Guanidine-II riboswitch aptamer (mini-ykkC): a 49-nucleotide sequence from Phoenix dactylifera. From the family's description: Simpler in structure and has fewer highly conserved nucleotide positions than the ykkC-yxkD leader. On this family, see Weinberg et al., Nucleic Acids Res 2007: "Identification of 22 candidate structured RNAs in bacteria using the CMfinder comparative genomics pipeline". NCBI's taxonomy places the organism under Eukaryota, Mesangiospermae, Petrosaviidae, Coryphoideae, Phoenix.
RNA sequence: ACCUCGGGACGACUCGGGAGGUUUACUUUUACUUGCGGGGACGACUCCG
Dot-bracket structure: ..((((((....)))))).................(((((....)))))